[Rfam]
Record summary:
A member of the RNA family "c-di-GMP-I riboswitch aptamer" from Vibrio renipiscarius, 84 nucleotides long. About the family: GEMM was predicted in a large-scale screen for bacterial structured RNA regulatory elements. Genes associated with GEMM are involved in a diverse array of functions, including chemotaxis regulation, signal transduction, secretion and chitin. Lineage of the source: Bacteria > Pseudomonadati > Vibrionales > Vibrionaceae > Vibrio.
RNA sequence: AACCAGAAAAGGCAAACCAGUAGAAAUGCUGGGACGCAAAGCUUCCGGUCUAAGGGAAUAUCCUAAGAUAGCGGGGAUGCCAGA
Numbered sequence: 001a002a003c004c005a006g007a008a009a010a011g012g013c014a015a016a017c018c019a020g021u022a023g024a025a026a027u028g029c030u031g032g033g034a035c036g037c038a039a040a041g042c043u044u045c046c047g048g049u050c051u052a053a054g055g056g057a058a059u060a061u062c063c064u065a066a067g068a069u070a071g072c073g074g075g076g077a078u079g080c081c082a083g084a
Stems, first nucleotide, its partner, number of pairs: 012037002017032006040078001042076002045074003048069003055063003